[Rfam]
RNA: FMN riboswitch aptamer (RFN element)
RNA sequence: AUUUAUUCUCAGGGCAGGGUGUAAUUCCCUACCGGCGGUAAAUCCUCUUUAGGAAAGCCCGCGAGCGCUUCAUUUUGAAGGUCAGCAGAUCUGGUGUAAUUCCAGAGCCGACGGUGACAGUCCGGAUGGAAGAGAGUAAAU
Numbered sequence: 001a002u003u004u005a006u007u008c009u010c011a012g013g014g015c016a017g018g019g020u021g022u023a024a025u026u027c028c029c030u031a032c033c034g035g036c037g038g039u040a041a042a043u044c045c046u047c048u049u050u051a052g053g054a055a056a057g058c059c060c061g062c063g064a065g066c067g068c069u070u071c072a073u074u075u076u077g078a079a080g081g082u083c084a085g086c087a088g089a090u091c092u093g094g095u096g097u098a099a100u101u102c103c104a105g106a107g108c109c110g111a112c113g114g115u116g117a118c119a120g121u122c123c124g125g126a127u128g129g130a131a132g133a134g135a136g137u138a139a140a141u
Base pairs, nucleotide, nucleotide: 003139004138005137006136007135008134009133010132017029018028019027031121032120033110034109035062036061037060038059057108058107065086066085090106091105092104093103094102112124113123114122